Rfam assigns this 139-nucleotide RNA from Brachypodium distachyon to the family "Small nucleolar RNA Z247". The base pairs follow the family's consensus structure, which was predicted with PFOLD. For this family Rfam cites "The high diversity of snoRNAs in plants: identification and comparative study of 120 snoRNA genes from Oryza sativa" (Chen et al., Nucleic Acids Res, 2003). The source organism's lineage runs through Eukaryota, Mesangiospermae, Petrosaviidae, Poaceae and Brachypodium. A search with the family's covariance model found it, with a score of 40 bits.
RNA sequence: CCGCUCGGGGAGGACGACCUGGUGUCCUACGUCCUCGCCGGCCUCGACUUCGACUACAACUCCCUGGUGUCGGCUAUCUGCACGCGUGUGGAGCCGAUCAAGAUGGCGGAGCUCUACUCACUGCUGAUGGGCUUCGAGU
Numbered sequence: 001c002c003g004c005u006c007g008g009g010g011a012g013g014a015c016g017a018c019c020u021g022g023u024g025u026c027c028u029a030c031g032u033c034c035u036c037g038c039c040g041g042c043c044u045c046g047a048c049u050u051c052g053a054c055u056a057c058a059a060c061u062c063c064c065u066g067g068u069g070u071c072g073g074c075u076a077u078c079u080g081c082a083c084g085c086g087u088g089u090g091g092a093g094c095c096g097a098u099c100a101a102g103a104u105g106g107c108g109g110a111g112c113u114c115u116a117c118u119c120a121c122u123g124c125u126g127a128u129g130g131g132c133u134u135c136g137a138g139u
Stems, first nucleotide, its partner, number of pairs: 004138005093107004